[Rfam]
The record is a 137-nucleotide sequence from Tepidamorphus gemmatus, which matches "Alphaproteobacterial sRNA BjrC1505" in Rfam.
Lineage of the source: Bacteria > Pseudomonadati > Pseudomonadota > Tepidamorphaceae > Tepidamorphus.

RNA sequence: UCGCGGUUAACCAUUCGUUAGGCUUUUCACGGUAAAUGUCGUGUUAUCCAGUCUUCUGGAUUUCGAGUGGCUCCUGUCCACUCUGUUUGACGCCUCCCUGUUAACCAACUGAGCCGCCCCACGGCGGCUCUUUUUCU
Numbered sequence: 001u002c003g004c005g006g007u008u009a010a011c012c013a014u015u016c017g018u019u020a021g022g023c024u025u026u027u028c029a030c031g032g033u034a035a036a037u038g039u040c041g042u043g044u045u046a047u048c049c050a051g052u053c054u055u056c057u058g059g060a061u062u063u064c065g066a067g068u069g070g071c072u073c074c075u076g077u078c079c080a081c082u083c084u085g086u087u088u089g090a091c092g093c094c095u096c097c098c099u100g101u102u103a104a105c106c107a108a109c110u111g112a113g114c115c116g117c118c119c120c121a122c123g124g125c126g127g128c129u130c131u132u133u134u135u136c137u
Stems, first nucleotide, its partner, number of pairs: 001041001003039001005012001014036002019034002024029001046061004065083006089102004111130008
Rfam classes the family as a small RNA. The pairing is the family consensus, mapped onto this sequence.